[Rfam]
RNA sequence: CCCUGUAUUUGAAAGUGCCCUAGUCAUCCAUAGUGCAGGGAGAGGAAUUGCUGAAAGACCUGUUCCCGUGUUUGGAGGGUCCACCCUGUCCCUUCUGAACCCUGGAGCUUUCACACA
Numbered sequence: 001c002c003c004u005g006u007a008u009u010u011g012a013a014a015g016u017g018c019c020c021u022a023g024u025c026a027u028c029c030a031u032a033g034u035g036c037a038g039g040g041a042g043a044g045g046a047a048u049u050g051c052u053g054a055a056a057g058a059c060c061u062g063u064u065c066c067c068g069u070g071u072u073u074g075g076a077g078g079g080u081c082c083a084c085c086c087u088g089u090c091c092c093u094u095c096u097g098a099a100c101c102c103u104g105g106a107g108c109u110u111u112c113a114c115a116c117a
Base pairs, nucleotide, nucleotide: 001040002039003038004037005036006035007034008033009032015027016026017025050114052113053112054111055110056109057108070100071099072098073097074096075094076093077092078091079090
RNA: Small nucleolar RNA SNORA71
Organism: Orycteropus afer